[Rfam]
RNA sequence: GCCAAAUGAUGCAAAAUAGAUGACAUUAGCACUCUGUGCAAAGAUGACUUACAUCUAUCACCCAGUACUGAUGGCU
Number, nucleotide and partner (000 for none) at each position: 001g075002c074003c073004a072005a000006a000007u000008g000009a000010u000011g000012c000013a000014a000015a000016a000017u000018a000019g000020a000021u000022g000023a000024c000025a000026u000027u000028a000029g039030c038031a037032c036033u000034c000035u000036g032037u031038g030039c029040a000041a000042a000043g000044a000045u000046g000047a000048c000049u000050u000051a000052c000053a000054u000055c000056u000057a000058u000059c000060a000061c000062c000063c000064a000065g000066u000067a000068c000069u000070g000071a000072u004073g003074g002075c001076u000
This 76-nucleotide sequence from Chelonoidis abingdonii belongs to the Rfam family "Small nucleolar RNA SNORD83". NCBI's taxonomy places the organism under Eukaryota, Gnathostomata, Teleostomi, Cryptodira, Chelonoidis nigra species complex. A search with the family's covariance model found it, with a score of 61 bits. On this family, see Jady and Kiss, Nucleic Acids Res 2000: "Characterisation of the U83 and U84 small nucleolar RNAs: two novel 2'-O-ribose methylation guide RNAs that lack complementarities to ribosomal RNAs". By type it is a C/D-box small nucleolar RNA. Its family is annotated with RNA processing and nucleolus in the Gene Ontology.